RNA: chrB-a RNA
RNA sequence: GCCCUGGGGACAGCGAUCUCCCCACGAGGCGACAUGCCGAAGCAUCGCGUCCUGCCAACCGCAAAGGACGCCAUCCAUG
Numbered sequence: 001g002c003c004c005u006g007g008g009g010a011c012a013g014c015g016a017u018c019u020c021c022c023c024a025c026g027a028g029g030c031g032a033c034a035u036g037c038c039g040a041a042g043c044a045u046c047g048c049g050u051c052c053u054g055c056c057a058a059c060c061g062c063a064a065a066g067g068a069c070g071c072c073a074u075c076c077a078u079g
Stems, first nucleotide, its partner, number of pairs: 005024006047071006